[Rfam]
RNA sequence: AUGCUCUGAUUUCUUGUUAGAACAAAUAAAUCUUUCACCUUUUAUUAAAGAUCCCCAUGGAGAGGGACAGUUGUGAGUUCAUAACCGAACUUUUUAAGGCCUUGCUUAGGCAGGGCU
Numbered sequence: 001a002u003g004c005u006c007u008g009a010u011u012u013c014u015u016g017u018u019a020g021a022a023c024a025a026a027u028a029a030a031u032c033u034u035u036c037a038c039c040u041u042u043u044a045u046u047a048a049a050g051a052u053c054c055c056c057a058u059g060g061a062g063a064g065g066g067a068c069a070g071u072u073g074u075g076a077g078u079u080c081a082u083a084a085c086c087g088a089a090c091u092u093u094u095u096a097a098g099g100c101c102u103u104g105c106u107u108a109g110g111c112a113g114g115g116c117u
Stems, first nucleotide, its partner, number of pairs: 003078004010067006017060003030052006097117001099116006
The record is a 117-nucleotide sequence from Pongo abelii, which matches "U5 spliceosomal RNA" in Rfam.
The family's consensus secondary structure is taken from published work.
Rfam's curators write: U5 RNA is a component of both types of known spliceosome.
Rfam 15.1 lists 28,527 matches to the family in 2,489 species.
The match comes from Rfam's covariance-model search (56 bits).